[Rfam]
RNA: SAM riboswitch aptamer (S box leader)
RNA sequence: AUCUUAUCUAGAGUGGCGGAGGGACUAGGCCCUGCGAAGCCCGGCAACCUUCAAGCAACGUGUGCUUGAGUGGUGCUACAUCCUACAGGUCUGUGGAUCUGGAAGAUAAGAU
Numbered sequence: 001a002u003c004u005u006a007u008c009u010a011g012a013g014u015g016g017c018g019g020a021g022g023g024a025c026u027a028g029g030c031c032c033u034g035c036g037a038a039g040c041c042c043g044g045c046a047a048c049c050u051u052c053a054a055g056c057a058a059c060g061u062g063u064g065c066u067u068g069a070g071u072g073g074u075g076c077u078a079c080a081u082c083c084u085a086c087a088g089g090u091c092u093g094u095g096g097a098u099c100u101g102g103a104a105g106a107u108a109a110g111a112u
Stems, first nucleotide, its partner, number of pairs: 001112008013042001015041003021032003026085004043077004048073002050070007081104001086101006